[Rfam]
RNA sequence: CGGACUGAUGAAUUUAAUCUCAUGGAAUCUCAUUCGUCUGAAUAAUUCUGAUGAGACUUAUUAUCUGACUGUU
Dot-bracket structure: ...........................(((((..((............)).))))).................
Source information: The family of this 73-nucleotide sequence is "Small nucleolar RNA SNORD30". Gene Ontology terms of the family: RNA processing and nucleolus. Rfam's curators put it in the seed alignment. By type it is a C/D-box small nucleolar RNA. Rfam 15.1 lists 367 matches to the family in 268 species. The pairing is the family consensus, mapped onto this sequence. The family is grouped with related families in Rfam's "SNORD30 clan".